[Rfam]
RNA: Rubella virus 3' cis-acting element
RNA sequence: UACUUGCGCGGCGCUAUAGCGCCGCGCUAGUGGGCCCCCGGGCGAAACCCGCAC
Numbered sequence: 001u002a003c004u005u006g007c008g009c010g011g012c013g014c015u016a017u018a019g020c021g022c023c024g025c026g027c028u029a030g031u032g033g034g035c036c037c038c039c040g041g042g043c044g045a046a047a048c049c050c051g052c053a054c
Base pairs, nucleotide, nucleotide: 001032002031003030004029006027007026008025009024010023011022012021013020014019033054036051042050